[Rfam]
RNA sequence: UUCUUAUCCAGAGAAGUGGAGGGACACGGCCCUAUGAAGCUCGGCAACCAGCAUUUGCAUGGUGCCAAUUCCACAAGCAAAAGCUUGUAAGAUGAGAC
Numbered sequence: 001u002u003c004u005u006a007u008c009c010a011g012a013g014a015a016g017u018g019g020a021g022g023g024a025c026a027c028g029g030c031c032c033u034a035u036g037a038a039g040c041u042c043g044g045c046a047a048c049c050a051g052c053a054u055u056u057g058c059a060u061g062g063u064g065c066c067a068a069u070u071c072c073a074c075a076a077g078c079a080a081a082a083g084c085u086u087g088u089a090a091g092a093u094g095a096g097a098c
Base pairs, nucleotide, nucleotide: 002097003096004095005094006093007092008091013042015041016040017039021032022031023030028072029071043066044065045064046063048062049061051058052057070090074087075086076085077084078083